RNA sequence: UUGCAAUCAAAUAUACUACAAUGUAUAACCUCAAGAAUACGGCUUGGGGGUCUCUACCAGGAACCGAAAAAUCCUGACUACAGAAAUGAAAACUUCAU
Numbered sequence: 001u002u003g004c005a006a007u008c009a010a011a012u013a014u015a016c017u018a019c020a021a022u023g024u025a026u027a028a029c030c031u032c033a034a035g036a037a038u039a040c041g042g043c044u045u046g047g048g049g050g051u052c053u054c055u056a057c058c059a060g061g062a063a064c065c066g067a068a069a070a071a072u073c074c075u076g077a078c079u080a081c082a083g084a085a086a087u088g089a090a091a092a093c094u095u096c097a098u
Stems, first nucleotide, its partner, number of pairs: 019083001022082004029049007058076005
RNA: Purine riboswitch aptamer
Organism: Neobacillus mesonae